[Rfam]
RNA: c-di-AMP riboswitch aptamer (ydaO/yuaA leader)
RNA sequence: UCUAAGAAGCAGCCGAGUUCCGCUUGCAGAGAGCGGGAGCGGGGGAACCACUGGGAGCGACGAGAGACGCUCCCCGGGGCGCAGGUGGGUACACCCACCGGGGCACGUUCAAGCCCUAGCCCGUCAGCUAACCUCGUAGGCCGGCGCGGGAGCGUCU
Numbered sequence: 001u002c003u004a005a006g007a008a009g010c011a012g013c014c015g016a017g018u019u020c021c022g023c024u025u026g027c028a029g030a031g032a033g034c035g036g037g038a039g040c041g042g043g044g045g046a047a048c049c050a051c052u053g054g055g056a057g058c059g060a061c062g063a064g065a066g067a068c069g070c071u072c073c074c075c076g077g078g079g080c081g082c083a084g085g086u087g088g089g090u091a092c093a094c095c096c097a098c099c100g101g102g103g104c105a106c107g108u109u110c111a112a113g114c115c116c117u118a119g120c121c122c123g124u125c126a127g128c129u130a131a132c133c134u135c136g137u138a139g140g141c142c143g144g145c146g147c148g149g150g151a152g153c154g155u156c157u
Base pairs, nucleotide, nucleotide: 012141013140014139018038019037020036021035022034023033024032025031039137040136041135042134043133044132049076077122078121079120085098086097087096088095101116102115103114104113